The record is a 164-nucleotide sequence from Nyctibius grandis, which matches "U1 spliceosomal RNA" in Rfam. Its family is annotated with U1 snRNP, pre-mRNA 5'-splice site binding and mRNA 5'-splice site recognition in the Gene Ontology. It scores 112 bits against the family's covariance model. U1 is a small nuclear RNA (snRNA) component of the spliceosome (involved in pre-mRNA splicing). Its 5' end forms complementary base pairs with the 5' splice junction, thus defining the 5' donor site of an intron. There are significant differences in sequence and secondary structure between metazoan and yeast U1 snRNAs, the latter being much longer (568 nucleotides as compared to 164 nucleotides in human).

RNA sequence: AUACUUACCUGGCAGAGGAGACACCAUGAUCAGGCAGGUGGUUUUCCCAGGGCGAGGCUCAUCCCCUGCACUCCAAGUGUGCUGACCCCUGUGAUUUCCCCAAAUGCGGGAAACUCGACUGCAUAAUUCGUGGUGCUUGUGAAAUGUGGCUAUACAGGCUCAAA
Dot-bracket structure: ...........((((.(((((.(((((..........)))))))))).((((.(.(((.(((..............))).)))..))))).((((((.((.......)).))).))).))))..............(((.(...((((....))))..).))).
Numbered sequence: 001a002u003a004c005u006u007a008c009c010u011g012g013c014a015g016a017g018g019a020g021a022c023a024c025c026a027u028g029a030u031c032a033g034g035c036a037g038g039u040g041g042u043u044u045u046c047c048c049a050g051g052g053c054g055a056g057g058c059u060c061a062u063c064c065c066c067u068g069c070a071c072u073c074c075a076a077g078u079g080u081g082c083u084g085a086c087c088c089c090u091g092u093g094a095u096u097u098c099c100c101c102a103a104a105u106g107c108g109g110g111a112a113a114c115u116c117g118a119c120u121g122c123a124u125a126a127u128u129c130g131u132g133g134u135g136c137u138u139g140u141g142a143a144a145u146g147u148g149g150c151u152a153u154a155c156a157g158g159c160u161c162a163a164a
Stems, first nucleotide, its partner, number of pairs: 012122004017047005023042005049090004054086001056083003060079003092117003095113003099109002137163003141159001145156004